RNA sequence: GCUGGGACAUGAUGUAAACAAAAGGCCGAAUUGUAGCACCCUCGCCUAGCAGCUUGUUCCCUGUGCAAUGGGCGCUGUGACAAAAACUCGACCGAAGCGUGAUCUGAUCCCAGC
Numbered sequence: 001g002c003u004g005g006g007a008c009a010u011g012a013u014g015u016a017a018a019c020a021a022a023a024g025g026c027c028g029a030a031u032u033g034u035a036g037c038a039c040c041c042u043c044g045c046c047u048a049g050c051a052g053c054u055u056g057u058u059c060c061c062u063g064u065g066c067a068a069u070g071g072g073c074g075c076u077g078u079g080a081c082a083a084a085a086a087c088u089c090g091a092c093c094g095a096a097g098c099g100u101g102a103u104c105u106g107a108u109c110c111c112a113g114c
Stems, first nucleotide, its partner, number of pairs: 001114007014104001025034002035100001042095002044092001046090001048088002052075002055070004059065001
Dot-bracket structure: (((((((......(..........((......))(......(((.(.((..((.(((((.....).))))...))...........)).).).))....)...)...)))))))
The record is a 114-nucleotide RNA from Gadus morhua, which matches "Small nucleolar RNA SNORD89" in Rfam. The family has 18 seed sequences and 642 matches in Rfam 15.1. On this family, see Huttenhofer et al., EMBO J 2001: "RNomics: an experimental approach that identifies 201 candidates for novel, small, non-messenger RNAs in mouse". By type it is a C/D-box small nucleolar RNA. snoRNA HBII-289 belongs to the family of C/D snoRNAs. It is the human orthologue of the mouse MBII-289 and has no identified RNA target.